[Rfam]
RNA sequence: CAAUCUGGAGAGAGGCGCCUGAGGGCGUCCACCGAAGGAGAAAUCCUGGCGUCGUUUCGGCGUCUGGGAGAAGCUCUCAGGUAACCGCGACAGAUGG
Numbered sequence: 001c002a003a004u005c006u007g008g009a010g011a012g013a014g015g016c017g018c019c020u021g022a023g024g025g026c027g028u029c030c031a032c033c034g035a036a037g038g039a040g041a042a043a044u045c046c047u048g049g050c051g052u053c054g055u056u057u058c059g060g061c062g063u064c065u066g067g068g069a070g071a072a073g074c075u076c077u078c079a080g081g082u083a084a085c086c087g088c089g090a091c092a093g094a095u096g097g
Base pairs, nucleotide, nucleotide: 001097003095004094005093006092007091014029015028016027017026031082032081033080034078035077038076039075040074044069045068046067047066048065049064

A member of the RNA family "Glycine riboswitch aptamer" from Methylobacterium sp. Leaf399, 97 nucleotides long. Gene Ontology term of the family: glycine biosynthetic process. It scores 50 bits against the family's covariance model.